This 177-nucleotide RNA from Halodesulfurarchaeum formicicum belongs to the Rfam family "Sense overlapping transcript RNA 0042 (sot)". The source organism's lineage runs through Archaea, Methanobacteriota, Halobacteria, Halobacteriaceae and Halodesulfurarchaeum.
RNA sequence: CGGUAACUCCGAAUCCCUCACAGGAUAGGAGUAACGGCUGUUUGGCCCAGCCAUCGGUCCGCCUGUUCGACAAACAGACGGGGCAAAUUGCCCCACAAGAACAGGUGGUUCCGUGAACCACAAUAUCCCAAUCCAGCGGUGCGGUACCGUGGGAAUCCCACGGCUUUAGCCGUGGGA
Numbered sequence: 001c002g003g004u005a006a007c008u009c010c011g012a013a014u015c016c017c018u019c020a021c022a023g024g025a026u027a028g029g030a031g032u033a034a035c036g037g038c039u040g041u042u043u044g045g046c047c048c049a050g051c052c053a054u055c056g057g058u059c060c061g062c063c064u065g066u067u068c069g070a071c072a073a074a075c076a077g078a079c080g081g082g083g084c085a086a087a088u089u090g091c092c093c094c095a096c097a098a099g100a101a102c103a104g105g106u107g108g109u110u111c112c113g114u115g116a117a118c119c120a121c122a123a124u125a126u127c128c129c130a131a132u133c134c135a136g137c138g139g140u141g142c143g144g145u146a147c148c149g150u151g152g153g154a155a156u157c158c159c160a161c162g163g164c165u166u167u168a169g170c171c172g173u174g175g176g177a
Stems, first nucleotide, its partner, number of pairs: 003035002007031004013026003036052005055113003060108001062105007080094005126154004156177009
The match comes from Rfam's covariance-model search (104 bits). Rfam's curators write: It is associated with IS1341-type transposase (tnpB) genes, at the 3'-end in H. salinarum NRC-1. The tetraloop structural motif may be functional. By type it is a small RNA.